[Rfam]
RNA sequence: GGUGCGGCCUGAAAGGGAUGAAGCUUCCCGAAGGAAACCCGGGUGACCGGGGAGUACGAGGGGGUAGACCGAGGUCGCACCGUCCGUCUUGAAACACGG
Numbered sequence: 001g002g003u004g005c006g007g008c009c010u011g012a013a014a015g016g017g018a019u020g021a022a023g024c025u026u027c028c029c030g031a032a033g034g035a036a037a038c039c040c041g042g043g044u045g046a047c048c049g050g051g052g053a054g055u056a057c058g059a060g061g062g063g064g065u066a067g068a069c070c071g072a073g074g075u076c077g078c079a080c081c082g083u084c085c086g087u088c089u090u091g092a093a094a095c096a097c098g099g
Stems, first nucleotide, its partner, number of pairs: 001081010015070002023065003027062003033057001038051005084099004